Record summary
This 92-nucleotide sequence from Streptomyces acidiscabies belongs to the Rfam family "sodF sRNA". Rfam 15.1 lists 336 matches to the family in 317 species. Gene Ontology terms of the family: negative regulation of translation, regulation of mRNA stability and mRNA binding. It is annotated as a small RNA.

[Rfam]
RNA sequence: GCGUCCUGCCUCGUGAUCGUCUUCUCAACUGUCACCGGGGGCAGGCGGAUUGAGGGGAACCCCCGUGAGGACAUGACUCACGGGGGUUUCCU
Numbered sequence: 001g002c003g004u005c006c007u008g009c010c011u012c013g014u015g016a017u018c019g020u021c022u023u024c025u026c027a028a029c030u031g032u033c034a035c036c037g038g039g040g041g042c043a044g045g046c047g048g049a050u051u052g053a054g055g056g057g058a059a060c061c062c063c064c065g066u067g068a069g070g071a072c073a074u075g076a077c078u079c080a081c082g083g084g085g086g087u088u089u090c091c092u
Stems, first nucleotide, its partner, number of pairs: 002047002005045007013035004019029002054092016